[Rfam]
RNA sequence: UUUUCUGACUAGGGGUGCCGGAGCGACCGGCUGAGAUAAAGAUGUAUUUCUUUAACCCUUUAACCUGAUCUGGAUAAUGCCAGCGUAGGGAAGUUUGAGCGACAUUAA
Dot-bracket structure: ......((((((((.((((((.....)))))......(((((......)))))).))))....((((..((((......))))..))))..)))).............
This 108-nucleotide RNA sequence from Peptoclostridium acidaminophilum belongs to the Rfam family "TPP riboswitch aptamer (THI element)".